[Rfam]
RNA sequence: UUUCAUGGUCAGUUUUGCAGGUUUGCAUCCAGUUGUUGUGAAAUGUGCUGUGCAAAUCCAUGCAAAACUGAUCAUGGCA
Numbered sequence: 001u002u003u004c005a006u007g008g009u010c011a012g013u014u015u016u017g018c019a020g021g022u023u024u025g026c027a028u029c030c031a032g033u034u035g036u037u038g039u040g041a042a043a044u045g046u047g048c049u050g051u052g053c054a055a056a057u058c059c060a061u062g063c064a065a066a067a068c069u070g071a072u073c074a075u076g077g078c079a
Stems, first nucleotide, its partner, number of pairs: 003077017020059002022056007031049003